RNA sequence: GCGAGCAAGCGGGGGAGCCCGGAGGACGGGCUGAGAGGAAGCGGACGCUUCGACCCUUCGACCUGAUGCGGGUAAUGCCGCCGUAGGAAGAUUCGGCUGUUUGAAG
Numbered sequence: 001g002c003g004a005g006c007a008a009g010c011g012g013g014g015g016a017g018c019c020c021g022g023a024g025g026a027c028g029g030g031c032u033g034a035g036a037g038g039a040a041g042c043g044g045a046c047g048c049u050u051c052g053a054c055c056c057u058u059c060g061a062c063c064u065g066a067u068g069c070g071g072g073u074a075a076u077g078c079c080g081c082c083g084u085a086g087g088a089a090g091a092u093u094c095g096g097c098u099g100u101u102u103g104a105a106g
Stems, first nucleotide, its partner, number of pairs: 007093002010090001011057004017031005038051005062087004068081004
RNA: TPP riboswitch aptamer (THI element)